[Rfam]
Shown here is an 81-nucleotide RNA from Oryctolagus cuniculus, a member of the family "Small nucleolar RNA SNORD115".
The literature on the family includes a 2000 paper in Proc Natl Acad Sci U S A by Cavaille et al., "Identification of brain-specific and imprinted small nucleolar RNA genes exhibiting an unusual genomic organization".
Its family is annotated with RNA processing and nucleolus in the Gene Ontology.
It scores 88 bits against the family's covariance model.
The base pairs follow the family's consensus structure, which was predicted with PFOLD.

RNA sequence: GGGUCAAUGAUGAGACCUCAUACUGUCUCGAAGAGAGAUGUGAACUUAAAAAUCAUGCUCAGUAGGAUUGCACUGAGGCCC
Numbered sequence: 001g002g003g004u005c006a007a008u009g010a011u012g013a014g015a016c017c018u019c020a021u022a023c024u025g026u027c028u029c030g031a032a033g034a035g036a037g038a039u040g041u042g043a044a045c046u047u048a049a050a051a052a053u054c055a056u057g058c059u060c061a062g063u064a065g066g067a068u069u070g071c072a073c074u075g076a077g078g079c080c081c
Stems, first nucleotide, its partner, number of pairs: 001081004005075002008072002